RNA sequence: GACGACCGGCCGGACACCUAUGUGCCCGGCCCACAAGUGGAGGCUCCGAUCUCCCACCUGACCGCUCUCACGGGCGGCGGGUCACCGGUCAGGCGGUCCCCAUCGUUCCGUACGGACGAUGGAACCGUCCGAUGCGCCCCGCGAUCGACGUGGUGGUGCUCCGGUCUUUUUGGAGCCCCGCCUGUGUCCCGUCGGGGCAUUUUUC
Numbered sequence: 001g002a003c004g005a006c007c008g009g010c011c012g013g014a015c016a017c018c019u020a021u022g023u024g025c026c027c028g029g030c031c032c033a034c035a036a037g038u039g040g041a042g043g044c045u046c047c048g049a050u051c052u053c054c055c056a057c058c059u060g061a062c063c064g065c066u067c068u069c070a071c072g073g074g075c076g077g078c079g080g081g082u083c084a085c086c087g088g089u090c091a092g093g094c095g096g097u098c099c100c101c102a103u104c105g106u107u108c109c110g111u112a113c114g115g116a117c118g119a120u121g122g123a124a125c126c127g128u129c130c131g132a133u134g135c136g137c138c139c140c141g142c143g144a145u146c147g148a149c150g151u152g153g154u155g156g157u158g159c160u161c162c163g164g165u166c167u168u169u170u171u172g173g174a175g176c177c178c179c180g181c182c183u184g185u186g187u188c189c190c191g192u193c194g195g196g197g198c199a200u201u202u203u204u205c
Base pairs, nucleotide, nucleotide: 004090005089006088007087008086009085012027013026028083029082030081031080032079034060035059037057038056039055040054041052042051062077063076064075065074066073067072092129093128094127095126096125100122101121102120103119104118105117106116107115136198137197138196139195140194141193143189149186150185151184152182153181154180155179156178158176159175160174161173162172

A member of the RNA family "Streptomyces RNA 1601" from Streptomyces termitum, 205 nucleotides long. About the family: Identified by deep sequencing of transcriptome at the end of exponential growth phase. Appears longer on northern blot than sequencing transcript. Streptomyces specific. By type it is a small RNA. On this family, see Vockenhuber et al., RNA Biol 2011: "Deep sequencing-based identification of small non-coding RNAs in Streptomyces coelicolor".